[Rfam]
RNA sequence: CCUCGAAGCGCUGUAGCAGCACAUCAUGGUUUGCAGGCUCCGCUCCAGGUGCGAAUCAUUUUUUGCUGCUGUAGGAAUUCGAGG
Dot-bracket structure: ((((((......(((((((((.(..((((((((((..............))))))))))..).)))))))))......))))))
This 84-nucleotide sequence from Pomatostomus ruficeps belongs to the Rfam family "mir-15 microRNA precursor family".
NCBI's taxonomy places the organism under Eukaryota, Vertebrata, Euteleostomi, Tetrapoda, Pomatostomus.
This family represents the related mir-15a and mir-15b sequences. In humans miR-15a and miR-16 are clustered within 0.5 kb at 13q14.
Pairs were carried over by alignment from the consensus structure, which was predicted with RNAalifold.